Notes: SAM riboswitch aptamer (S box leader): a 151-nucleotide RNA sequence from Peribacillus deserti. It scores 63 bits against the family's covariance model.
RNA sequence: UUCUUAUUGUGAGCAGGUGGAGGGGACUAGCCCUAUGAAGCCCGGCAACCGACCGUAAUUCCAUUGUGAAAUGGGGCGAUAAUUUUCGCCGGAAUGACAUUCCUUAAGGCACGGUGCUAAAUCUGGCAGCUAAAAAGCUGAGAGAUAAGAA
Numbered sequence: 001u002u003c004u005u006a007u008u009g010u011g012a013g014c015a016g017g018u019g020g021a022g023g024g025g026a027c028u029a030g031c032c033c034u035a036u037g038a039a040g041c042c043c044g045g046c047a048a049c050c051g052a053c054c055g056u057a058a059u060u061c062c063a064u065u066g067u068g069a070a071a072u073g074g075g076g077c078g079a080u081a082a083u084u085u086u087c088g089c090c091g092g093a094a095u096g097a098c099a100u101u102c103c104u105u106a107a108g109g110c111a112c113g114g115u116g117c118u119a120a121a122u123c124u125g126g127c128a129g130c131u132a133a134a135a136a137g138c139u140g141a142g143a144g145a146u147a148a149g150a151a
Base pairs, nucleotide, nucleotide: 001151002150003149004148005147006146007145008144013043016042017041018040022033023032024031027126028125029124030123044118045117046116047115049114050113051110053108122143127140128139129138130137131136

Annotation
Lineage of the source: Bacteria > Bacillati > Caryophanales > Bacillaceae > Peribacillus. Gene Ontology term of the family: regulation of gene expression.